[Rfam]
RNA sequence: CGCCCAUUUCGCAAAUGAUGGAUUUCGCUUCGCGGACCUUCGGUUCAUUGAAGAAAGCCGAGAGGCAUUCGGGGUCGAGCCGAUCUGCAGGGCACUGCAGUUUGCCCCU
Numbered sequence: 001c002g003c004c005c006a007u008u009u010c011g012c013a014a015a016u017g018a019u020g021g022a023u024u025u026c027g028c029u030u031c032g033c034g035g036a037c038c039u040u041c042g043g044u045u046c047a048u049u050g051a052a053g054a055a056a057g058c059c060g061a062g063a064g065g066c067a068u069u070c071g072g073g074g075u076c077g078a079g080c081c082g083a084u085c086u087g088c089a090g091g092g093c094a095c096u097g098c099a100g101u102u103u104g105c106c107c108c109u
Stems, first nucleotide, its partner, number of pairs: 016027003071108004081104002085100006

Description
Shown here is a 109-nucleotide RNA from Alphaproteobacteria bacterium PA3, a member of the family "ALIL pseudoknot". On this family, see Mazauric et al., J Biol Chem 2008: "Apical loop-internal loop RNA pseudoknots: a new type of stimulator of -1 translational frameshifting in bacteria". Rfam classes the family as a cis-regulatory element.